[Rfam]
RNA sequence: CUAUGUUGAAAUCAACUCUCUGAUUUUUCAACGACCUUUCCCUGAGUAAAGUGAAGAAUUGCUGUGUGUAGUCUUUGCCCAUCCUAUGAGAUGGGCUUUUUUUUAA
Numbered sequence: 001c002u003a004u005g006u007u008g009a010a011a012u013c014a015a016c017u018c019u020c021u022g023a024u025u026u027u028u029c030a031a032c033g034a035c036c037u038u039u040c041c042c043u044g045a046g047u048a049a050a051g052u053g054a055a056g057a058a059u060u061g062c063u064g065u066g067u068g069u070a071g072u073c074u075u076u077g078c079c080c081a082u083c084c085u086a087u088g089a090g091a092u093g094g095g096c097u098u099u100u101u102u103u104u105a106a
Stems, first nucleotide, its partner, number of pairs: 002022002005019001032044002060068003077096007
Source information:
The record is a 106-nucleotide RNA sequence from Erwinia sp. OLSSP12, which matches "RprA RNA" in Rfam. A search with the family's covariance model found it, with a score of 73 bits. The base pairs follow the family's consensus structure, which was predicted with PFOLD. Translational regulation of the stationary phase sigma factor RpoS is mediated by the formation of a double-stranded RNA stem-loop structure in the upstream region of the rpoS messenger RNA, occluding the translation initiation site. Taxonomically the source falls in Erwinia (Bacteria, Pseudomonadota, Enterobacterales, Erwiniaceae). Rfam links the family to the GO term mRNA binding. The family's RNA type in Rfam is small RNA. For this family Rfam cites "Regulation of RpoS by a novel small RNA: the characterization of RprA" (Majdalani et al., Mol Microbiol, 2001).